Arthropod 7SK RNA: a 305-nucleotide RNA sequence from Nezara viridula.
A reference for the family is Gruber et al. (2008), "Arthropod 7SK RNA", Mol Biol Evol.
The family's consensus secondary structure is taken from published work.
The family is grouped with related families in Rfam's "7SK clan".
RNA sequence: GGAAGUGUGUGUCAGGUGAUGGCACAACUGAACAUUGAUCGUACAUUGAUUUAGUGCAGAUCUGCUUAGUAUAGUGUUAUCACGUGGUUUCUAGUAGCCUAAGCGGAACUUCCCGAUGACUGGGCUCUCGGUAGAGAUCCGCUUCUGGGCUCCUCGAAUCACCGCGGCUGUUUCCAUGUUAUUAAAAUACAAACAUUGCCUUUUAGGCUAAACGAGGUUUUUUCGAACCAGAGAGUGAGAGCUAGGGAUUAAUGUCAUAACUAAACGCUUCUCCGGCACCUGUACGCGAAUUAGUAAUUAUUUUU
Numbered sequence: 001g002g003a004a005g006u007g008u009g010u011g012u013c014a015g016g017u018g019a020u021g022g023c024a025c026a027a028c029u030g031a032a033c034a035u036u037g038a039u040c041g042u043a044c045a046u047u048g049a050u051u052u053a054g055u056g057c058a059g060a061u062c063u064g065c066u067u068a069g070u071a072u073a074g075u076g077u078u079a080u081c082a083c084g085u086g087g088u089u090u091c092u093a094g095u096a097g098c099c100u101a102a103g104c105g106g107a108a109c110u111u112c113c114c115g116a117u118g119a120c121u122g123g124g125c126u127c128u129c130g131g132u133a134g135a136g137a138u139c140c141g142c143u144u145c146u147g148g149g150c151u152c153c154u155c156g157a158a159u160c161a162c163c164g165c166g167g168c169u170g171u172u173u174c175c176a177u178g179u180u181a182u183u184a185a186a187a188u189a190c191a192a193a194c195a196u197u198g199c200c201u202u203u204u205a206g207g208c209u210a211a212a213c214g215a216g217g218u219u220u221u222u223u224c225g226a227a228c229c230a231g232a233g234a235g236u237g238a239g240a241g242c243u244a245g246g247g248a249u250u251a252a253u254g255u256c257a258u259a260a261c262u263a264a265a266c267g268c269u270u271c272u273c274c275g276g277c278a279c280c281u282g283u284a285c286g287c288g289a290a291u292u293a294g295u296a297a298u299u300a301u302u303u304u305u
Stems, first nucleotide, its partner, number of pairs: 001272008016083005028069003033064002037062004041057004
Rfam 15.1 lists 229 matches to the family in 137 species.